RNA sequence: AAAAUAAGGGAGCAAUAACCACUUUCUUGUUCUAAACAAGAUGGGGUAUUGCUCCUUUAU
Numbered sequence: 001a002a003a004a005u006a007a008g009g010g011a012g013c014a015a016u017a018a019c020c021a022c023u024u025u026c027u028u029g030u031u032c033u034a035a036a037c038a039a040g041a042u043g044g045g046g047u048a049u050u051g052c053u054c055c056u057u058u059a060u
Stems, first nucleotide, its partner, number of pairs: 006058012022044001025041005